[Rfam]
RNA: Bacterial RNase P class A
Organism: Protaetiibacter sp. SSC-01
RNA sequence: CGGGUCGGCCAGACGGUCGCGUCGCGUGCCCGGUGCCUCUCGAAGGCGCCGUGUGCGCGCCGAGGAACGUCCGGGCUCCGCAGAGCAGGGUGGUGGGUAACGCCCACCCGGAGUGAUCCGCGAGAAAGUGCAACAGAGAGCAGACCGCCACGUCGCGCAAGCGGCGGGGUAAGGGUGAAACGGUGGUGUAAGAGACCACCAGGGGCCCGAGUGAUCGGGCUCGCUGGGUAAACCUCGCCCGGAGCAAGGUCAGACAGGUGCCGUUGAGGUUGCUCGCCGAGGCACCGGGUAGACCGCUAGAGGGCUGCGGCAACGUAGCCCCGAGAGAGAUGGCCGUCCGGUCGGCUCACGUCGACUGACAGAACCCGGCGUAUCGGCCGGCCCGUUCG
Numbered sequence: 001c002g003g004g005u006c007g008g009c010c011a012g013a014c015g016g017u018c019g020c021g022u023c024g025c026g027u028g029c030c031c032g033g034u035g036c037c038u039c040u041c042g043a044a045g046g047c048g049c050c051g052u053g054u055g056c057g058c059g060c061c062g063a064g065g066a067a068c069g070u071c072c073g074g075g076c077u078c079c080g081c082a083g084a085g086c087a088g089g090g091u092g093g094u095g096g097g098u099a100a101c102g103c104c105c106a107c108c109c110g111g112a113g114u115g116a117u118c119c120g121c122g123a124g125a126a127a128g129u130g131c132a133a134c135a136g137a138g139a140g141c142a143g144a145c146c147g148c149c150a151c152g153u154c155g156c157g158c159a160a161g162c163g164g165c166g167g168g169g170u171a172a173g174g175g176u177g178a179a180a181c182g183g184u185g186g187u188g189u190a191a192g193a194g195a196c197c198a199c200c201a202g203g204g205g206c207c208c209g210a211g212u213g214a215u216c217g218g219g220c221u222c223g224c225u226g227g228g229u230a231a232a233c234c235u236c237g238c239c240c241g242g243a244g245c246a247a248g249g250u251c252a253g254a255c256a257g258g259u260g261c262c263g264u265u266g267a268g269g270u271u272g273c274u275c276g277c278c279g280a281g282g283c284a285c286c287g288g289g290u291a292g293a294c295c296g297c298u299a300g301a302g303g304g305c306u307g308c309g310g311c312a313a314c315g316u317a318g319c320c321c322c323g324a325g326a327g328a329g330a331u332g333g334c335c336g337u338c339c340g341g342u343c344g345g346c347u348c349a350c351g352u353c354g355a356c357u358g359a360c361a362g363a364a365c366c367c368g369g370c371g372u373a374u375c376g377g378c379c380g381g382c383c384c385g386u387u388c389g
Stems, first nucleotide, its partner, number of pairs: 001385010011374001012338007020062002023059006067372003071369005076244004083275004088240005093107005108122001109120004123235002128233002130229002145174002147170003151166006182200006202224001203222008248295004257286006268278003302321008